[Rfam]
RNA sequence: AAGAGUCUCGGGUCAAUAAGGACCAAGGAGAUUGACUCAAGAACAAA
Numbered sequence: 001a002a003g004a005g006u007c008u009c010g011g012g013u014c015a016a017u018a019a020g021g022a023c024c025a026a027g028g029a030g031a032u033u034g035a036c037u038c039a040a041g042a043a044c045a046a047a
Stems, first nucleotide, its partner, number of pairs: 007041002010038008

Background:
This 47-nucleotide RNA from Tetracentron sinense belongs to the Rfam family "Plastid-rpl16 group II-D1 intron". The family has 538 seed sequences and 1,446 matches in Rfam 15.1. It scores 57 bits against the family's covariance model. Taxonomically the source falls in Tetracentron (Eukaryota, Streptophytina, Tracheophyta, Trochodendrales). On this family, see Richter et al., Plant Commun 2023: "Retrograde signaling in plants: A critical review focusing on the GUN pathway and beyond". The family's consensus secondary structure was predicted with LocARNA. Its family is annotated with Group II intron splicing in the Gene Ontology. Rfam's curators write: Plastid-rpl16 is a non-coding RNA (ncRNA) recognised in plastids.